[Rfam]
RNA sequence: GGGUUUUACUCCUGGAUGUUACCGUAUCGCCCAACCUAAGCCGGACGUCGUUUUGGUGUCUGACUCGGUAACCGAAUCGGGAGCACCAUCUGCGUAGGCUUAAUUUAAGACUUUCGUCACCUACGGUCUUGGACAGCCCCCGCCAGGCAGGGACCCCAAUAAGAGAGCGAAGCAGUGCUUCGCUC
Numbered sequence: 001g002g003g004u005u006u007u008a009c010u011c012c013u014g015g016a017u018g019u020u021a022c023c024g025u026a027u028c029g030c031c032c033a034a035c036c037u038a039a040g041c042c043g044g045a046c047g048u049c050g051u052u053u054u055g056g057u058g059u060c061u062g063a064c065u066c067g068g069u070a071a072c073c074g075a076a077u078c079g080g081g082a083g084c085a086c087c088a089u090c091u092g093c094g095u096a097g098g099c100u101u102a103a104u105u106u107a108a109g110a111c112u113u114u115c116g117u118c119a120c121c122u123a124c125g126g127u128c129u130u131g132g133a134c135a136g137c138c139c140c141c142g143c144c145a146g147g148c149a150g151g152g153a154c155c156c157c158a159a160u161a162a163g164a165g166a167g168c169g170a171a172g173c174a175g176u177g178c179u180u181c182g183c184u185c
Stems, first nucleotide, its partner, number of pairs: 002156002005153003011147004023050002028047002031044002035040001054088006060080004065075002092143003097138004104133009166184006
RNA: Pseudomonas sRNA P27
Organism: Pseudomonas sp. HPB0071